[Rfam]
Nucleotides: 130
Base pairs, nucleotide, nucleotide: 008079009078010077011076012075014028015027016026017025029050031048032047033046034045035044036043051074052073053072054071055070056069057068101127102126103125104124105123106122107121108120110119111118
Number, partner (000 for none) and nucleotide at each position: 001000a002000a003000a004000a005000a006000g007000g008079g009078u010077u011076g012075g013000u014028u015027g016026g017025c018000u019000a020000a021000a022000u023000a024000u025017g026016c027015c028014a029050c030000u031048c032047u033046c034045g035044c036043c037000c038000g039000u040000a041000g042000c043036g044035g045034u046033g047032a048031g049000u050029g051074c052073u053072g054071u055070a056069u057068g058000g059000c060000u061000a062000u063000c064000a065000a066000g067000a068057c069056a070055u071054a072053u073052g074051g075012c076011c077010g078009a079008c080000a081000u082000a083000a084000u085000u086000u087000g088000u089000g090000g091000a092000a093000c094000u095000c096000a097000c098000a099000a100000a101127a102126g103125g104124g105123u106122u107121g108120g109000c110119c111118c112000c113000u114000c115000a116000u117000u118111g119110g120108c121107c122106g123105a124104c125103c126102c127101u128000c129000c130000a
U11 spliceosomal RNA: a 130-nucleotide RNA from Capsicum baccatum. The family's RNA type in Rfam is spliceosomal small nuclear RNA. The organism belongs to Capsicum, within Eukaryota. The base pairs follow the family's consensus structure, which is taken from published work.